The record is a 75-nucleotide RNA sequence from Phycicoccus sp. HDW14, which matches "6C RNA" in Rfam. Taxonomically the source falls in Phycicoccus (Bacteria, Actinomycetes, Micrococcales, Intrasporangiaceae). The base pairs follow the family's consensus structure, which is taken from published work.
[Rfam]
Nucleotides: 075
Stems, first nucleotide, its partner, number of pairs: 002036004007031003010027004038071013
Number, partner (000 for none) and nucleotide at each position: 001000g002036g003035c004034g005033a006000a007031c008030c009029g010027g011026c012025u013024u014000c015000u016000c017000c018000c019000c020000c021000c022000c023000g024013g025012a026011g027010c028000u029009c030008g031007g032000c033005u034004c035003g036002c037000c038071g039070a040069c041068g042067g043066c044065c045064c046063c047062g048061g049060u050059u051000g052000u053000c054000c055000c056000c057000c058000c059050g060049a061048c062047c063046g064045g065044g066043g067042c068041c069040g070039u071038c072000c073000c074000a075000u